[Rfam]
Shown here is an 84-nucleotide RNA from Alkaliphilus peptidifermentans, a member of the family "c-di-GMP-I-GGC riboswitch aptamer". Clan: c-di-GMP_I riboswitch clan. Taxonomically the source falls in Alkaliphilus peptidifermentans (Bacteria, Bacillota, Natronincolaceae, Alkaliphilus).

RNA sequence: UACGAUAAAAGCAAACCAUUGGAAACGAUGGGACGCAAAGCCACGGACCUUCUCCAUAUCUGGAUGGUAGCCGAGUUGCCGAAU
Numbered sequence: 001u002a003c004g005a006u007a008a009a010a011g012c013a014a015a016c017c018a019u020u021g022g023a024a025a026c027g028a029u030g031g032g033a034c035g036c037a038a039a040g041c042c043a044c045g046g047a048c049c050u051u052c053u054c055c056a057u058a059u060c061u062g063g064a065u066g067g068u069a070g071c072c073g074a075g076u077u078g079c080c081g082a083a084u
Stems, first nucleotide, its partner, number of pairs: 003081002011036002016031006034070001039077003044073003047068003
Dot-bracket structure: ..((......((...((((((....))))))..[))..(((..((((((................))).]))).)))..))...